[Rfam]
RNA sequence: UGCUCAAUGAUUAAGCCAUGUUAAACCAUGGUAAUAUACGCUAUUCUGACCCACAUGAGGAUGUUAUAAGCUUUAUGAGAGCA
Numbered sequence: 001u002g003c004u005c006a007a008u009g010a011u012u013a014a015g016c017c018a019u020g021u022u023a024a025a026c027c028a029u030g031g032u033a034a035u036a037u038a039c040g041c042u043a044u045u046c047u048g049a050c051c052c053a054c055a056u057g058a059g060g061a062u063g064u065u066a067u068a069a070g071c072u073u074u075a076u077g078a079g080a081g082c083a
Base pairs, nucleotide, nucleotide: 001083002082003081004080005079
Small nucleolar RNA U54: an 83-nucleotide sequence from Paspalum vaginatum. Its Rfam clan is "U54 clan". A reference for the family is Chen et al. (2003), "The high diversity of snoRNAs in plants: identification and comparative study of 120 snoRNA genes from Oryza sativa", Nucleic Acids Res.